Record summary:
Rfam assigns this 63-nucleotide RNA from Streptomyces sp. ISL-98 to the family "Actino-pnp RNA". By type it is a cis-regulatory element. It scores 65 bits against the family's covariance model. The family's consensus secondary structure is taken from published work.
RNA sequence: GCCGGUCCUCGGUAGUGGCCCCCGGAGCACAUACUCCCCCGGGAGCUUCGAUCGAAGACCGGC
Numbered sequence: 001g002c003c004g005g006u007c008c009u010c011g012g013u014a015g016u017g018g019c020c021c022c023c024g025g026a027g028c029a030c031a032u033a034c035u036c037c038c039c040c041g042g043g044a045g046c047u048u049c050g051a052u053c054g055a056a057g058a059c060c061g062g063c
Stems, first nucleotide, its partner, number of pairs: 001063007009055005017047003021043005027037001029035001